[Rfam]
RNA sequence: CGCGUGGGACGACCCACUGUAUGCGUCUGUACUCCGCAGGACGACCUGC
Number, nucleotide and partner (000 for none) at each position: 001c000002g020003c019004g018005u016006g015007g014008g013009a000010c000011g000012a000013c008014c007015c006016a005017c000018u004019g003020u002021a000022u000023g000024c000025g000026u000027c000028u000029g000030u000031a000032c000033u000034c000035c000036g049037c048038a047039g046040g045041a000042c000043g000044a000045c040046c039047u038048g037049c036
Rfam assigns this 49-nucleotide sequence from Prodigiosinella confusarubida to the family "Guanidine-II riboswitch aptamer (mini-ykkC)". It scores 32 bits against the family's covariance model. NCBI's taxonomy places the organism under Bacteria, Pseudomonadati, Pseudomonadota, Pectobacteriaceae, Prodigiosinella. Rfam describes the family as follows. Simpler in structure and has fewer highly conserved nucleotide positions than the ykkC-yxkD leader. Despite this each of its two stem-loop structures directly bind free guanidine. The family's consensus secondary structure is taken from published work.